Source information
Rfam assigns this 80-nucleotide sequence from Flavobacterium micromati to the family "Flavo-1 RNA".
RNA sequence: UCCUAGCCCUGAUAGCAGUGAAAAUCCUUGUUGCUUUUUUUAAAAAAGCAACAAGAUUGUAGCGGAUAGCAGGAUAAAGC
Dot-bracket structure: ........(((.((...((...((((..((((((((((.....)))))))))).))))...))...)).)))........